[Rfam]
RNA sequence: CUGAAAUGAUGAGGUUCCACUUCAUUGGUCCGUGUUUCUGACACACAUGAUAUGAUAGUGGAAGUUCUGAUCGG
Numbered sequence: 001c002u003g004a005a006a007u008g009a010u011g012a013g014g015u016u017c018c019a020c021u022u023c024a025u026u027g028g029u030c031c032g033u034g035u036u037u038c039u040g041a042c043a044c045a046c047a048u049g050a051u052a053u054g055a056u057a058g059u060g061g062a063a064g065u066u067c068u069g070a071u072c073g074g
Stems, first nucleotide, its partner, number of pairs: 001074004
Shown here is a 74-nucleotide RNA from Phoenicopterus ruber, a member of the family "Small nucleolar RNA SNORD18". NCBI's taxonomy places the organism under Eukaryota, Eumetazoa, Archosauria, Phoenicopteridae, Phoenicopterus ruber. Pairs were carried over by alignment from the consensus structure, which was predicted with PFOLD. A reference for the family is Prislei et al. (1993), "Two different snoRNAs are encoded in introns of amphibian and human L1 ribosomal protein genes", Nucleic Acids Res. A search with the family's covariance model found it, with a score of 70 bits. Rfam classes the family as a C/D-box small nucleolar RNA.